[Rfam]
A member of the RNA family "miR-430 microRNA precursor family" from Mola mola, 69 nucleotides long. Rfam 15.1 lists 24,817 matches to the family in 105 species. Clan: mir-290 clan. The source organism's lineage runs through Eukaryota, Craniata, Gnathostomata, Clupeocephala and Mola. Pairs were carried over by alignment from the consensus structure, which was predicted with RNAalifold.
RNA sequence: AACAUUACCUUACCAAAAUCACUGACUUGAUUUUGACUGUAGUAAGUACUAUUUGUUGGGGUAGUUUCG
Dot-bracket structure: ...((((((((..(((((..(((.(((.............))).)))..).))))..))))))))....